The record is a 291-nucleotide sequence from Nitrosomonas sp. Nm58, which matches "Bacterial RNase P class A" in Rfam. Ribonuclease P (RNase P) is a ubiquitous endoribonuclease, found in archaea, bacteria and eukarya as well as chloroplasts and mitochondria. Rfam classes the family as a ribozyme.
RNA sequence: GAAGCUGACCAGACAGUCGCUGCCUGCGAAAGCAGGGAGAGGAAAGUCCGGACUCCAUAGAGCGGGAUGCCGGUUAAUGGCCGGCCGUCGUGAGGCGAGGAAUAGGGCCACAGAGACGAGCGUAUUAAGUUACGGUGAAACGCGGUAACCUCCAUCCGGAGCAAGACCAAAUAGGCAGGCUACGAUGCUGCUCGCUGAGCCUGCGGGUAGGUUGCUUGAGUACACGGGUAACUGUGUACCUAGAGGAAUGACUGUCCAAGACAGAAUCCGGCUUAUCGGUCAGCUUCCCUU
Numbered sequence: 001g002a003a004g005c006u007g008a009c010c011a012g013a014c015a016g017u018c019g020c021u022g023c024c025u026g027c028g029a030a031a032g033c034a035g036g037g038a039g040a041g042g043a044a045a046g047u048c049c050g051g052a053c054u055c056c057a058u059a060g061a062g063c064g065g066g067a068u069g070c071c072g073g074u075u076a077a078u079g080g081c082c083g084g085c086c087g088u089c090g091u092g093a094g095g096c097g098a099g100g101a102a103u104a105g106g107g108c109c110a111c112a113g114a115g116a117c118g119a120g121c122g123u124a125u126u127a128a129g130u131u132a133c134g135g136u137g138a139a140a141c142g143c144g145g146u147a148a149c150c151u152c153c154a155u156c157c158g159g160a161g162c163a164a165g166a167c168c169a170a171a172u173a174g175g176c177a178g179g180c181u182a183c184g185a186u187g188c189u190g191c192u193c194g195c196u197g198a199g200c201c202u203g204c205g206g207g208u209a210g211g212u213u214g215c216u217u218g219a220g221u222a223c224a225c226g227g228g229u230a231a232c233u234g235u236g237u238a239c240c241u242a243g244a245g246g247a248a249u250g251a252c253u254g255u256c257c258a259a260g261a262c263a264g265a266a267u268c269c270g271g272c273u274u275a276u277c278g279g280u281c282a283g284c285u286u287c288c289c290u291u
Base pairs, nucleotide, nucleotide: 001287002286003285004284005283006282007281008280009279010278011276012256013255014254015253016252017251018250020039021038023036024035025034026033027032044274045273046272048271049270050269051268052267053161054160055159056158060193061192062191063190065157066156067155068154069153070084071083072082073081074080085099086097087096088095089094100152101151105150106149107146108145109144121134122133123132124131165213166212167211168210175204176203177202178201179200180199187195188194220239221238222237223236224235225234226233227232